[Rfam]
RNA sequence: CGGGCUGGUCAUCGUGACCCAGGUCCACCUUUCGACGGGUAAGACACCC
Numbered sequence: 001c002g003g004g005c006u007g008g009u010c011a012u013c014g015u016g017a018c019c020c021a022g023g024u025c026c027a028c029c030u031u032u033c034g035a036c037g038g039g040u041a042a043g044a045c046a047c048c049c
Stems, first nucleotide, its partner, number of pairs: 002026005007019004
RNA: DUF3800-XI RNA